[Rfam]
RNA sequence: GGGCGGUGAUGAGAAUUAUAGAGAAUGUCAUGCACCACUCUGAAUAUUGUGAUGAUAAAUUCUCAUACCCAUUUACAAAUUCUGAGCCU
Numbered sequence: 001g002g003g004c005g006g007u008g009a010u011g012a013g014a015a016u017u018a019u020a021g022a023g024a025a026u027g028u029c030a031u032g033c034a035c036c037a038c039u040c041u042g043a044a045u046a047u048u049g050u051g052a053u054g055a056u057a058a059a060u061u062c063u064c065a066u067a068c069c070c071a072u073u074u075a076c077a078a079a080u081u082c083u084g085a086g087c088c089u
Stems, first nucleotide, its partner, number of pairs: 001089004

This 89-nucleotide sequence from Striga asiatica belongs to the Rfam family "Small nucleolar RNA Z221/R21b".
On this family, see Chen et al., Nucleic Acids Res 2003: "The high diversity of snoRNAs in plants: identification and comparative study of 120 snoRNA genes from Oryza sativa".
The base pairs follow the family's consensus structure, which was predicted with WAR.
Taxonomically the source falls in Striga (Eukaryota, Embryophyta, Magnoliopsida, Pentapetalae).
Its family is annotated with RNA processing and nucleolus in the Gene Ontology.